[Rfam]
RNA sequence: UUUACUGAAUGAAAGCAUCCUUUGAAACCCUUUUGAGAGGGAUGCUUGAUGGAAACGUAAA
Numbered sequence: 001u002u003u004a005c006u007g008a009a010u011g012a013a014a015g016c017a018u019c020c021u022u023u024g025a026a027a028c029c030c031u032u033u034u035g036a037g038a039g040g041g042a043u044g045c046u047u048g049a050u051g052g053a054a055a056c057g058u059a060a061a
Base pairs, nucleotide, nucleotide: 001061002060003059004058005057014046015045016044017043018042019041020040021039022038023037028035
Overview:
The family of this 61-nucleotide RNA sequence from Synaphobranchus kaupii is "Selenocysteine insertion sequence 1". Lineage of the source: Eukaryota > Vertebrata > Euteleostomi > Actinopteri > Synaphobranchus. Pairs were carried over by alignment from the consensus structure, which is taken from published work. The incorporation of selenocysteine into a protein sequence is directed by an in-frame UGA codon (usually a stop codon) within the coding region of the mRNA. Selenoprotein mRNAs contain a conserved secondary structure in the 3' UTR that is required for the distinction of UGA stop from UGA selenocysteine. The selenocysteine insertion sequence (SECIS) is around 60 nt in length and adopts a hairpin structure which is sufficiently well-defined and conserved to act as a computational screen for selenoprotein genes.